[Rfam]
RNA sequence: AGACGUAGUGUGAGGCCAUAGCAGAAGCGCUCAUGGUGUGGCCAUGUCAGAUUCCAAUGAAUCUGCAAAUUCUUCC
Numbered sequence: 001a002g003a004c005g006u007a008g009u010g011u012g013a014g015g016c017c018a019u020a021g022c023a024g025a026a027g028c029g030c031u032c033a034u035g036g037u038g039u040g041g042c043c044a045u046g047u048c049a050g051a052u053u054c055c056a057a058u059g060a061a062u063c064u065g066c067a068a069a070u071u072c073u074u075c076c
Base pairs, nucleotide, nucleotide: 011044014043015042016041017040021075023073024072025071026070027039028038029037048065049064050063051062052061053060054059
Shown here is a 76-nucleotide RNA from Alligator mississippiensis, a member of the family "Mammalian CPEB3 ribozyme". The literature on the family includes a 2004 paper in Nature by Teixeira et al., "Autocatalytic RNA cleavage in the human beta-globin pre-mRNA promotes transcription termination". Rfam's curators write: The mammalian CPEB3 ribozyme is a self cleaving RNA located in the second intron of the CPEB3 gene which belongs to a family of genes regulating messenger RNA polyadenylation.